[Rfam]
RNA sequence: UUUGGUAAAAUAGAUUUCGUCGUUAAGAAAAUUGAACUUGAUGACCCUCAGGACUUUUUACCUUUGCCUGAGCAUACUACAGUCGCUGACAGGCGAUAAAGGAGCAUUGAUG
Numbered sequence: 001u002u003u004g005g006u007a008a009a010a011u012a013g014a015u016u017u018c019g020u021c022g023u024u025a026a027g028a029a030a031a032u033u034g035a036a037c038u039u040g041a042u043g044a045c046c047c048u049c050a051g052g053a054c055u056u057u058u059u060a061c062c063u064u065u066g067c068c069u070g071a072g073c074a075u076a077c078u079a080c081a082g083u084c085g086c087u088g089a090c091a092g093g094c095g096a097u098a099a100a101g102g103a104g105c106a107u108u109g110a111u112g
Stems, first nucleotide, its partner, number of pairs: 019045009047072006059104001061102004082097005
Dot-bracket structure: ..................(((((((((.........))))))))).((((((......[.[[[[..)))))).........(((((......))))).]]]].]........

A member of the RNA family "PreQ1-II (pre queuosine) riboswitch aptamer" from Lactococcus fujiensis, 112 nucleotides long. Rfam describes the family as follows. preQ1-II riboswitch was first reported for Weinberg et al. 2007 it was recognised in Streptococcaceae and Lactococcus families in 5' untranslated regions of genes of a membrane protein classified as COG4708 or DUF988. It scores 62 bits against the family's covariance model. For this family Rfam cites "Confirmation of a second natural preQ1 aptamer class in Streptococcaceae bacteria" (Meyer et al., RNA, 2008).